This 135-nucleotide RNA from Synaphobranchus kaupii belongs to the Rfam family "Small nucleolar RNA SNORA28".
It scores 72 bits against the family's covariance model.
The family's consensus secondary structure was predicted with RNAfold.
For this family Rfam cites "RNomics: an experimental approach that identifies 201 candidates for novel, small, non-messenger RNAs in mouse" (Huttenhofer et al., EMBO J, 2001).
NCBI's taxonomy places the organism under Eukaryota, Chordata, Vertebrata, Elopomorpha, Synaphobranchus.
Rfam 15.1 lists 922 matches to the family in 535 species.
Rfam's curators write: ACA28 is a member of the H/ACA class of snoRNA that guide the sites of modification of uridines to pseudouridines.
RNA sequence: AAGCUACACUCUGUGUCAAAAGUUGGAAACGACAAUGAUUUGGCUCAAUUUAAGCUUGCCAAAGUAAACUACGGCCUGACCUUUACCAGCACUCUCUUCACCAUUGGGAUUUGCUGUUAUGCAGACCGUAACACA
Numbered sequence: 001a002a003g004c005u006a007c008a009c010u011c012u013g014u015g016u017c018a019a020a021a022g023u024u025g026g027a028a029a030c031g032a033c034a035a036u037g038a039u040u041u042g043g044c045u046c047a048a049u050u051u052a053a054g055c056u057u058g059c060c061a062a063a064g065u066a067a068a069c070u071a072c073g074g075c076c077u078g079a080c081c082u083u084u085a086c087c088a089g090c091a092c093u094c095u096c097u098u099c100a101c102c103a104u105u106g107g108g109a110u111u112u113g114c115u116g117u118u119a120u121g122c123a124g125a126c127c128g129u130a131a132c133a134c135a
Stems, first nucleotide, its partner, number of pairs: 009054002012047002015044001017042004072128003076124003082121001084119001087116004095109004